A member of the RNA family "Fluoride riboswitch aptamer (crcB RNA motif)" from Romboutsia weinsteinii, 59 nucleotides long.
It scores 52 bits against the family's covariance model.
The family's consensus secondary structure is taken from published work.
[Rfam]
RNA sequence: AAUUUUACCGGCGAUGGUGUUCGCCAUUAAAUGCGAAAGCUAAUGACUCCUACUCUCUA
Numbered sequence: 001a002a003u004u005u006u007a008c009c010g011g012c013g014a015u016g017g018u019g020u021u022c023g024c025c026a027u028u029a030a031a032u033g034c035g036a037a038a039g040c041u042a043a044u045g046a047c048u049c050c051u052a053c054u055c056u057c058u059a
Base pairs, nucleotide, nucleotide: 010025011024012023013022016050017049019047020046021045033040034039
Dot-bracket structure: .........((((..[[.[[[)))).......((....))....]]].]].........